[Rfam]
A member of the RNA family "Glycine riboswitch aptamer" from Kutzneria kofuensis, 92 nucleotides long. The match comes from Rfam's covariance-model search (63 bits). Rfam links the family to the GO term glycine biosynthetic process.
RNA sequence: ACAGCCCGGUCGGGAGAGCCCUCGGAUUCGCCGAGGCGCCGAAGGAGCAAGCCUCCCCGCACACUCUCAGGCAACCAGACCGGCCGGGCGAG
Numbered sequence: 001a002c003a004g005c006c007c008g009g010u011c012g013g014g015a016g017a018g019c020c021c022u023c024g025g026a027u028u029c030g031c032c033g034a035g036g037c038g039c040c041g042a043a044g045g046a047g048c049a050a051g052c053c054u055c056c057c058c059g060c061a062c063a064c065u066c067u068c069a070g071g072c073a074a075c076c077a078g079a080c081c082g083g084c085c086g087g088g089c090g091a092g
Stems, first nucleotide, its partner, number of pairs: 006087008020036004038072003041068002045066003051060002